[Rfam]
RNA sequence: CUCUGGAGAGCAUUGGGUGUUACUAACACGCCGAUCACCAACGGGGAAACCUGCCCACUCAAGUGGAACAGGGUAACUCUCAGGUACAAAGGACAGAG
Numbered sequence: 001c002u003c004u005g006g007a008g009a010g011c012a013u014u015g016g017g018u019g020u021u022a023c024u025a026a027c028a029c030g031c032c033g034a035u036c037a038c039c040a041a042c043g044g045g046g047a048a049a050c051c052u053g054c055c056c057a058c059u060c061a062a063g064u065g066g067a068a069c070a071g072g073g074u075a076a077c078u079c080u081c082a083g084g085u086a087c088a089a090a091g092g093a094c095a096g097a098g
Base pairs, nucleotide, nucleotide: 001098002097003096004095005094012035013034014033015032037085038084039083041080044079045078046077050072051071052070053069
RNA: Glycine riboswitch aptamer
Organism: Paenibacillus wynnii